[Rfam]
RNA sequence: AUGAAGGAUUUGGGAGAGCUGCCGGGUUUUGAUUCUGCCGCGGCACACCGAAGGGGCUUUGCGGAAACUCUCAGGUAAACGAACCAUAUUCUGACG
Numbered sequence: 001a002u003g004a005a006g007g008a009u010u011u012g013g014g015a016g017a018g019c020u021g022c023c024g025g026g027u028u029u030u031g032a033u034u035c036u037g038c039c040g041c042g043g044c045a046c047a048c049c050g051a052a053g054g055g056g057c058u059u060u061g062c063g064g065a066a067a068c069u070c071u072c073a074g075g076u077a078a079a080c081g082a083a084c085c086a087u088a089u090u091c092u093g094a095c096g
Stems, first nucleotide, its partner, number of pairs: 006091004011086003020045004047076003050072002054070003
RNA: Glycine riboswitch aptamer
Organism: Cuneatibacter caecimuris